[Rfam]
RNA sequence: UGGUGUCCACCUUUACUCGGAUCGUCCGGCACGUUCCUGCCGGUGAAGGGGGCCCUCA
Dot-bracket structure: .........((((((..........((((((......)))))))))))).........
Numbered sequence: 001u002g003g004u005g006u007c008c009a010c011c012u013u014u015a016c017u018c019g020g021a022u023c024g025u026c027c028g029g030c031a032c033g034u035u036c037c038u039g040c041c042g043g044u045g046a047a048g049g050g051g052g053c054c055c056u057c058a
Stems, first nucleotide, its partner, number of pairs: 010049006026043006